[Rfam]
Shown here is a 75-nucleotide RNA sequence from Desulfuromonas sp. DDH964, a member of the family "c-di-GMP-I-GGC riboswitch aptamer".
RNA sequence: UCCGAUACUGGCAAAACCGGCGCGAGCCGGUGACGCAAAGCUGCGGGUCCCACGGGGACAGCCGGGUUGCCGAAG
Numbered sequence: 001u002c003c004g005a006u007a008c009u010g011g012c013a014a015a016a017c018c019g020g021c022g023c024g025a026g027c028c029g030g031u032g033a034c035g036c037a038a039a040g041c042u043g044c045g046g047g048u049c050c051c052a053c054g055g056g057g058a059c060a061g062c063c064g065g066g067u068u069g070c071c072g073a074a075g
Stems, first nucleotide, its partner, number of pairs: 001075001003072002011036002016031006034061001039068004044064003047059003
A search with the family's covariance model found it, with a score of 64 bits.